[Rfam]
RNA sequence: AAAAAUGGUAUUAUUCGCACUCGUAUAUGUUCUAUAAUAGGGUUUGAACGUUUCUACCUAACAGCCGUAAACUGUUUGACUAUGGGUGUUUAUAGUUAGAUU
Numbered sequence: 001a002a003a004a005a006u007g008g009u010a011u012u013a014u015u016c017g018c019a020c021u022c023g024u025a026u027a028u029g030u031u032c033u034a035u036a037a038u039a040g041g042g043u044u045u046g047a048a049c050g051u052u053u054c055u056a057c058c059u060a061a062c063a064g065c066c067g068u069a070a071a072c073u074g075u076u077u078g079a080c081u082a083u084g085g086g087u088g089u090u091u092a093u094a095g096u097u098a099g100a101u102u
Stems, first nucleotide, its partner, number of pairs: 018088008029049004034044001058078001060076005
RNA: Purine riboswitch aptamer
Organism: Clostridium acetireducens